[Rfam]
Glycine riboswitch aptamer: an 89-nucleotide sequence from Roseobacter ponti.
RNA sequence: GGUAUCCGUAUGGGAGAACCGGGCGUGACCCGGUGCCGAAGGAGCAACCGCCCCGGAAACUCUCAGGCCAGAAGGACCAUGCGGAUAAC
Numbered sequence: 001g002g003u004a005u006c007c008g009u010a011u012g013g014g015a016g017a018a019c020c021g022g023g024c025g026u027g028a029c030c031c032g033g034u035g036c037c038g039a040a041g042g043a044g045c046a047a048c049c050g051c052c053c054c055g056g057a058a059a060c061u062c063u064c065a066g067g068c069c070a071g072a073a074g075g076a077c078c079a080u081g082c083g084g085a086u087a088a089c
Base pairs, nucleotide, nucleotide: 006084007083008082009081010080011079012078013077019033020032021031022030035068036067037066038064039063042062043061044060048056049055
The organism belongs to Roseobacter, within Bacteria.